The record is a 138-nucleotide RNA from Synaphobranchus kaupii, which matches "Small nucleolar RNA SNORA15" in Rfam. Its family is annotated with nucleolus and RNA processing in the Gene Ontology. From the family's description: ACA15 is a member of the H/ACA class of snoRNA that guide the sites of modification of uridines to pseudouridines. On this family, see Huttenhofer et al., EMBO J 2001: "RNomics: an experimental approach that identifies 201 candidates for novel, small, non-messenger RNAs in mouse". By type it is an H/ACA-box small nucleolar RNA.

[Rfam]
RNA sequence: GCAUGGCCGAAUUCUGUGUUACUCCCGUCAGUAGUAAACACAGUCAGACACCAUGCAAAAUAACCCUUUCACUCUCUCUGAACACCAGCGGGCGAGUGCCCGUACGCUCGCCCGCGGCACGCAAGAGUGAACACAUUC
Numbered sequence: 001g002c003a004u005g006g007c008c009g010a011a012u013u014c015u016g017u018g019u020u021a022c023u024c025c026c027g028u029c030a031g032u033a034g035u036a037a038a039c040a041c042a043g044u045c046a047g048a049c050a051c052c053a054u055g056c057a058a059a060a061u062a063a064c065c066c067u068u069u070c071a072c073u074c075u076c077u078c079u080g081a082a083c084a085c086c087a088g089c090g091g092g093c094g095a096g097u098g099c100c101c102g103u104a105c106g107c108u109c110g111c112c113c114g115c116g117g118c119a120c121g122c123a124a125g126a127g128u129g130a131a132c133a134c135a136u137u138c
Stems, first nucleotide, its partner, number of pairs: 001056006014043006068131003072127004076121001086117001088115008